[Rfam]
RNA: L17-Actino-Proteobacteria ribosomal protein leader
RNA sequence: CGGGGGCCGUGCCCUGGCACGGCCCCCGGCCCGACUCCGGUACCUGAUACGGCCGGGGCGG
Numbered sequence: 001c002g003g004g005g006g007c008c009g010u011g012c013c014c015u016g017g018c019a020c021g022g023c024c025c026c027c028g029g030c031c032c033g034a035c036u037c038c039g040g041u042a043c044c045u046g047a048u049a050c051g052g053c054c055g056g057g058g059c060g061g
Base pairs, nucleotide, nucleotide: 001028002027003026004025005024006023007022008021009020010019011018012017031061032060033059035058036057037056038055039054040053041052